[Rfam]
RNA: mir-22 microRNA precursor family
RNA sequence: GGCUGCCCCGCAGCAGUUCUUCAGUGGCAAGCUUUAUGUCCCAUCCGCUGCUAAAGCUGCCAGUUGAAGAACUGUUGGCCGCAGC
Numbered sequence: 001g002g003c004u005g006c007c008c009c010g011c012a013g014c015a016g017u018u019c020u021u022c023a024g025u026g027g028c029a030a031g032c033u034u035u036a037u038g039u040c041c042c043a044u045c046c047g048c049u050g051c052u053a054a055a056g057c058u059g060c061c062a063g064u065u066g067a068a069g070a071a072c073u074g075u076u077g078g079c080c081g082c083a084g085c
Stems, first nucleotide, its partner, number of pairs: 005082002011077002017071006026061003030058007